[Rfam]
Nucleotides: 072
Base pairs, nucleotide, nucleotide: 003072004071005070007067008066009065010064015061016060017059018058019057
Number, partner (000 for none) and nucleotide at each position: 001000a002000c003072g004071g005070u006000u007067c008066c009065g010064g011000u012000u013000g014000a015061c016060g017059g018058c019057g020000c021000g022000a023000u024000c025000g026000g027000c028000a029000g030000c031000a032000c033000g034000c035000c036000c037000g038000c039000g040000c041000c042000c043000g044000u045000c046000u047000u048000g049000a050000g051000g052000a053000g054000c055000a056000c057019c058018g059017c060016c061015g062000a063000c064010c065009c066008g067007g068000c069000g070005a071004c072003c
A member of the RNA family "L31-Actinobacteria ribosomal protein leader", 72 nucleotides long. The sequence is in the family's curated seed alignment. The family's RNA type in Rfam is cis-regulatory leader.